The record is an 84-nucleotide RNA from Streptomyces griseoflavus, which matches "nrdJ RNA" in Rfam. It is annotated as a small RNA. NCBI's taxonomy places the organism under Bacteria, Actinomycetes, Streptomycetaceae, Streptomyces, Streptomyces griseoflavus.
RNA sequence: ACCUGUUGCGGGCAGGCGAGUGGGCACCCGCAGCACCAGACAGAACACCGUGCCACGGGAACAAUCGGGGCACUUCAGGGCGUU
Numbered sequence: 001a002c003c004u005g006u007u008g009c010g011g012g013c014a015g016g017c018g019a020g021u022g023g024g025c026a027c028c029c030g031c032a033g034c035a036c037c038a039g040a041c042a043g044a045a046c047a048c049c050g051u052g053c054c055a056c057g058g059g060a061a062c063a064a065u066c067g068g069g070g071c072a073c074u075u076c077a078g079g080g081c082g083u084u
Base pairs, nucleotide, nucleotide: 004035005034006033007032008031009030010029011028012027017024050073051072052071053070054069056067057066